The family of this 75-nucleotide RNA sequence from Myotis davidii is "mir-9223 microRNA precursor family". The match comes from Rfam's covariance-model search (77 bits). Taxonomically the source falls in Myotis (Eukaryota, Metazoa, Chordata, Vespertilionidae). The base pairs follow the family's consensus structure, which was predicted with RNAalifold. The family has 9 seed sequences and 14,641 matches in Rfam 15.1.
RNA sequence: UAUGGUUCUCGGGUGACGCACCCCAGAAUUGGGCUCCUUCCUCUCUGGUUCUGGGUGCGUCACCCGAGAAUUGCA
Numbered sequence: 001u002a003u004g005g006u007u008c009u010c011g012g013g014u015g016a017c018g019c020a021c022c023c024c025a026g027a028a029u030u031g032g033g034c035u036c037c038u039u040c041c042u043c044u045c046u047g048g049u050u051c052u053g054g055g056u057g058c059g060u061c062a063c064c065c066g067a068g069a070a071u072u073g074c075a
Stems, first nucleotide, its partner, number of pairs: 003073001005071013019057005025052009